A member of the RNA family "permuted transfer-messenger RNA" from Nisaea acidiphila, 216 nucleotides long. The match comes from Rfam's covariance-model search (152 bits). The base pairs follow the family's consensus structure, which is taken from published work. Rfam links the family to the GO term RNA catabolic process. Lineage of the source: Bacteria > Pseudomonadati > Pseudomonadota > Thalassobaculaceae > Nisaea. Rfam classes the family as a non-coding RNA gene.

RNA sequence: GGCGAUAAACGGCCUGUGAAAUAAGCAUUGCGGACCCGGGGGCGGUACCCGGCGCCUCCACCAAAGAUUCCCGGCCUCGUGGCUGGCUCCUUGGGGGCGAAAUAGGAUCGACGCGUGUGGUAAAGACAGUUCUUUCGCUCGGCAUGGUUCCGCCGUUAUCGGGCCAUUAUAGUAGUUGCAAACGACAACUAUGCGGAAGCUCGCCUCGCUGCGUAA
Numbered sequence: 001g002g003c004g005a006u007a008a009a010c011g012g013c014c015u016g017u018g019a020a021a022u023a024a025g026c027a028u029u030g031c032g033g034a035c036c037c038g039g040g041g042g043c044g045g046u047a048c049c050c051g052g053c054g055c056c057u058c059c060a061c062c063a064a065a066g067a068u069u070c071c072c073g074g075c076c077u078c079g080u081g082g083c084u085g086g087c088u089c090c091u092u093g094g095g096g097g098c099g100a101a102a103u104a105g106g107a108u109c110g111a112c113g114c115g116u117g118u119g120g121u122a123a124a125g126a127c128a129g130u131u132c133u134u135u136c137g138c139u140c141g142g143c144a145u146g147g148u149u150c151c152g153c154c155g156u157u158a159u160c161g162g163g164c165c166a167u168u169a170u171a172g173u174a175g176u177u178g179c180a181a182a183c184g185a186c187a188a189c190u191a192u193g194c195g196g197a198a199g200c201u202c203g204c205c206u207c208g209c210u211g212c213g214u215a216a
Base pairs, nucleotide, nucleotide: 001139002138003137004136005135014129015128016127017126026117027116028115030114031113032112036052037051038050039049040048053099054098055097056096057095058094059093140155141154142153143152